Shown here is a 166-nucleotide RNA sequence from Gallus gallus, a member of the family "Small Cajal body specific RNA 1". For this family Rfam cites "Cajal body-specific small nuclear RNAs: a novel class of 2'-O-methylation and pseudouridylation guide RNAs" (Darzacq et al., EMBO J, 2002). Rfam classes the family as a small Cajal body RNA. Rfam's curators put it in the seed alignment. Rfam's curators write: scaRNAs are a specific class of small nuclear RNAs which localise to the Cajal bodies and guide the modification of RNA polymerase II transcribed spliceosomal RNAs U1, U2, U4, U5 and U12.
[Rfam]
RNA sequence: GAGCACUUGAUACUAACCGAGCUAUCUGUAUCCCAGGUCUCCUCCAGAGGUCUGAGGUAUACUUUGUGAUUGCUGGGUCUGAAAAGUGCAACAUUAAAACAAGCCCUGCAGUGUUUAAGCUCAGUGUGUAAAGGAUGACACUGGGUUAUAGCUCAGAGGCACAGAA
Numbered sequence: 001g002a003g004c005a006c007u008u009g010a011u012a013c014u015a016a017c018c019g020a021g022c023u024a025u026c027u028g029u030a031u032c033c034c035a036g037g038u039c040u041c042c043u044c045c046a047g048a049g050g051u052c053u054g055a056g057g058u059a060u061a062c063u064u065u066g067u068g069a070u071u072g073c074u075g076g077g078u079c080u081g082a083a084a085a086g087u088g089c090a091a092c093a094u095u096a097a098a099a100c101a102a103g104c105c106c107u108g109c110a111g112u113g114u115u116u117a118a119g120c121u122c123a124g125u126g127u128g129u130a131a132a133g134g135a136u137g138a139c140a141c142u143g144g145g146u147u148a149u150a151g152c153u154c155a156g157a158g159g160c161a162c163a164g165a166a
Stems, first nucleotide, its partner, number of pairs: 003089006016078003020074003024070003028062003032057002034054001036052006103160003124139002129134001141156006